[Rfam]
RNA sequence: UUGAAAAAAUAUAAAUUGAUUCGUAUAUUCUCAGUAAUUUGGUCUGGGAGUUUCUACAAGGAACCGUUAAUUCCUAACUACGAAUGGGUGUAUUUAUUGU
Numbered sequence: 001u002u003g004a005a006a007a008a009a010u011a012u013a014a015a016u017u018g019a020u021u022c023g024u025a026u027a028u029u030c031u032c033a034g035u036a037a038u039u040u041g042g043u044c045u046g047g048g049a050g051u052u053u054c055u056a057c058a059a060g061g062a063a064c065c066g067u068u069a070a071u072u073c074c075u076a077a078c079u080a081c082g083a084a085u086g087g088g089u090g091u092a093u094u095u096a097u098u099g100u
Base pairs, nucleotide, nucleotide: 019085020084021083022082023081024080025079029049030048031047032046033045034044059075060074061073062072063071
RNA: Purine riboswitch aptamer
Organism: Bacillus solimangrovi